[Rfam]
RNA: Ribosomal protein L10 leader
RNA sequence: AACUUCAGAACACGCAUACCUAAGACAGUAGGUGCCUUCGGGCUUAAUCCCCUACCGAGGUGUUAUGAUAUACGUUUCCCGUAAACGGACAAUCAUGGCCUUCGCUGUCUUGGCGGAGGCCUUUAUUCAUGCACCG
Numbered sequence: 001a002a003c004u005u006c007a008g009a010a011c012a013c014g015c016a017u018a019c020c021u022a023a024g025a026c027a028g029u030a031g032g033u034g035c036c037u038u039c040g041g042g043c044u045u046a047a048u049c050c051c052c053u054a055c056c057g058a059g060g061u062g063u064u065a066u067g068a069u070a071u072a073c074g075u076u077u078c079c080c081g082u083a084a085a086c087g088g089a090c091a092a093u094c095a096u097g098g099c100c101u102u103c104g105c106u107g108u109c110u111u112g113g114c115g116g117a118g119g120c121c122u123u124u125a126u127u128c129a130u131g132c133a134c135c136g
Base pairs, nucleotide, nucleotide: 028055029054030053031052032051034043035042036041097121098120099119100118101117102116103115104114105113106112